[Rfam]
RNA: mir-16 microRNA precursor family
RNA sequence: UGCUGCCAGCAGCAGCACAGAAGUAAGGGUGGCAUGGUAUGGAACUGCCACCCUUACUUCUGUGCUGCUCCUGGCGGGA
Dot-bracket structure: (.(.(((...((((((((.(.((((((((.....................)))))))))..))))))))...))).).)
Numbered sequence: 001u002g003c004u005g006c007c008a009g010c011a012g013c014a015g016c017a018c019a020g021a022a023g024u025a026a027g028g029g030u031g032g033c034a035u036g037g038u039a040u041g042g043a044a045c046u047g048c049c050a051c052c053c054u055u056a057c058u059u060c061u062g063u064g065c066u067g068c069u070c071c072u073g074g075c076g077g078g079a
Stems, first nucleotide, its partner, number of pairs: 001079001003077001005075003011069008020059001022058008